[Rfam]
RNA sequence: UGAAGAUACUGAACUUAGCUUAUCAGUGACCAUUAUUCAAAAAUGAUUUGUUCACAGUGGCUAAGUUCAGUGUCUGGA
Numbered sequence: 001u002g003a004a005g006a007u008a009c010u011g012a013a014c015u016u017a018g019c020u021u022a023u024c025a026g027u028g029a030c031c032a033u034u035a036u037u038c039a040a041a042a043a044u045g046a047u048u049u050g051u052u053c054a055c056a057g058u059g060g061c062u063a064a065g066u067u068c069a070g071u072g073u074c075u076g077g078a
Stems, first nucleotide, its partner, number of pairs: 011068010026055004031050002
Dot-bracket structure: ..........((((((((((.....((((.((................)).))))...))))))))))..........

Shown here is a 78-nucleotide RNA sequence from Esox lucius, a member of the family "mir-27 microRNA precursor family".
On this family, see Chen et al., Genes Dev 2005: "The developmental miRNA profiles of zebrafish as determined by small RNA cloning".
Gene Ontology terms of the family: miRNA-mediated post-transcriptional gene silencing and RISC complex.
The source organism's lineage runs through Eukaryota, Deuterostomia, Euteleosteomorpha, Esocidae and Esox.